[Rfam]
RNA sequence: AAAGUAUCCUACGCUACUGCCAUGGACUGGUUUAUAGCGGUUUGCUUUGCCUUU
Numbered sequence: 001a002a003a004g005u006a007u008c009c010u011a012c013g014c015u016a017c018u019g020c021c022a023u024g025g026a027c028u029g030g031u032u033u034a035u036a037g038c039g040g041u042u043u044g045c046u047u048u049g050c051c052u053u054u
Base pairs, nucleotide, nucleotide: 001054002053003052008049011046013045014044016041017040018039019038020037022035023034024033025032026031
Record summary:
A member of the RNA family "Editing element of GABA-3 exon 9" from Origma solitaria, 54 nucleotides long. The family's RNA type in Rfam is cis-regulatory element.